[Rfam]
RNA sequence: UUGCCAUAAUUCACCUCUCUAGCAGGUGGGAUGUGGAAGUGUCGGCCGGCCUGCAACGCCGGCCGAUGCGCCU
Numbered sequence: 001u002u003g004c005c006a007u008a009a010u011u012c013a014c015c016u017c018u019c020u021a022g023c024a025g026g027u028g029g030g031a032u033g034u035g036g037a038a039g040u041g042u043c044g045g046c047c048g049g050c051c052u053g054c055a056a057c058g059c060c061g062g063c064c065g066a067u068g069c070g071c072c073u
Base pairs, nucleotide, nucleotide: 004036005035006034012028013027014026015025016024039069040068041067042066043065044064045063046062047061048060049059050058

The family of this 73-nucleotide RNA sequence from Plasticicumulans acidivorans is "Plasmid transferred anti-sense RNA". Lineage of the source: Bacteria > Pseudomonadota > Gammaproteobacteria > Candidatus Competibacteraceae > Plasticicumulans. For this family Rfam cites "A novel family of plasmid-transferred anti-sense ncRNAs" (Findeiss et al., RNA Biol, 2010). The match comes from Rfam's covariance-model search (85 bits).